A member of the RNA family "MIR8565 microRNA precursor family" from Amborella trichopoda, 149 nucleotides long. It scores 139 bits against the family's covariance model. Pairs were carried over by alignment from the consensus structure, which was predicted with RNAalifold.

[Rfam]
RNA sequence: CUCACACCCAUGUGUAUAGGACCCCAAAGGAUCACCAUUAAAUUUGGCACAGAUCUCUAGAAAAGUUAUCACAUAGAUGUGCGACUUUUCUAGAGAUCUAUACCAAAUUUAAUGGUGAUCCUUUGAGGUCCUACACACAUGGGUGUGGG
Numbered sequence: 001c002u003c004a005c006a007c008c009c010a011u012g013u014g015u016a017u018a019g020g021a022c023c024c025c026a027a028a029g030g031a032u033c034a035c036c037a038u039u040a041a042a043u044u045u046g047g048c049a050c051a052g053a054u055c056u057c058u059a060g061a062a063a064a065g066u067u068a069u070c071a072c073a074u075a076g077a078u079g080u081g082c083g084a085c086u087u088u089u090c091u092a093g094a095g096a097u098c099u100a101u102a103c104c105a106a107a108u109u110u111a112a113u114g115g116u117g118a119u120c121c122u123u124u125g126a127g128g129u130c131c132u133a134c135a136c137a138c139a140u141g142g143g144u145g146u147g148g149g
Stems, first nucleotide, its partner, number of pairs: 002148012015135001017133007025125004030120003034116014049101001051099017070081004